[Rfam]
RNA sequence: CAGUGUUGUCAAGUGUAACAGCAACUCCAUGUGGAUUACACAUAUUUCCAGUGGAGAUGCUGUUACUUUUGAAGGCUGU
Dot-bracket structure: ........(((...((((((((..((((((.(((.............)))))))))..))))))))...))).......
The family of this 79-nucleotide RNA from Varanus komodoensis is "mir-194 microRNA precursor family". The base pairs follow the family's consensus structure, which was predicted with RNAalifold.